Rfam assigns this 59-nucleotide sequence to the family "GP20-b RNA". The base pairs follow the family's consensus structure, which is taken from published work. It is annotated as a cis-regulatory element. It is one of the family's seed sequences.

[Rfam]
RNA sequence: GGAAUCCGCAAUCCUACAGGGCGGGACGACGGGUGGCGGCGACCACCUAAAAAAGCCUA
Numbered sequence: 001g002g003a004a005u006c007c008g009c010a011a012u013c014c015u016a017c018a019g020g021g022c023g024g025g026a027c028g029a030c031g032g033g034u035g036g037c038g039g040c041g042a043c044c045a046c047c048u049a050a051a052a053a054a055g056c057c058u059a
Stems, first nucleotide, its partner, number of pairs: 001014003006024004032047004
Dot-bracket structure: [[[..((((..]]]......)))).......((((........))))............